[Rfam]
RNA: MIR807 microRNA precursor family
RNA sequence: AACCAAACUAUCAAUGAACAGAUUCAUAUGUGAGAUGACAUGGUUGUUUCACCUAGGAUGAGGACGUGGCAUCCUAUUAAUUUCAUGCGAUGGCUGGUAAUAAGAUGCCAUGUUCUUGUCCUAAGUGGAACACCCACGUCAUAUCACGGCUGAAUCCAUUUAUUGAUAGUGUGGUU
Numbered sequence: 001a002a003c004c005a006a007a008c009u010a011u012c013a014a015u016g017a018a019c020a021g022a023u024u025c026a027u028a029u030g031u032g033a034g035a036u037g038a039c040a041u042g043g044u045u046g047u048u049u050c051a052c053c054u055a056g057g058a059u060g061a062g063g064a065c066g067u068g069g070c071a072u073c074c075u076a077u078u079a080a081u082u083u084c085a086u087g088c089g090a091u092g093g094c095u096g097g098u099a100a101u102a103a104g105a106u107g108c109c110a111u112g113u114u115c116u117u118g119u120c121c122u123a124a125g126u127g128g129a130a131c132a133c134c135c136a137c138g139u140c141a142u143a144u145c146a147c148g149g150c151u152g153a154a155u156c157c158a159u160u161u162a163u164u165g166a167u168a169g170u171g172u173g174g175u176u
Base pairs, nucleotide, nucleotide: 001176002175003174004173005172007170009168010167011166012165013164014163015162017160018159021156022155023154024153025152026151030147031146032145033144035142036141037140038139039138041136042135043134045132046131047130048129051126052125054123055122057120058119063114064113065112069108070107071106072105073104075102076101077100078099079098086097